[Rfam]
RNA sequence: CUUCUCAUUUAUUUGCUGCUAUAGCCUCAUAAUGAUACAAGCAGUUACAUGCAUGGGAUAAAAUAAUAUUGGGACAUUGUAAAUUGAAAUGAAGUAACCCUUUUCAUCUUUUCUGCAUGGACAAGACAUUG
Dot-bracket structure: ..((((((......((((((.((..(.......).))..)))))).......))))))..........((.(..((.((((....((.((((((.......)))))).))...))))))..).))......
RNA: Small nucleolar RNA SNORA20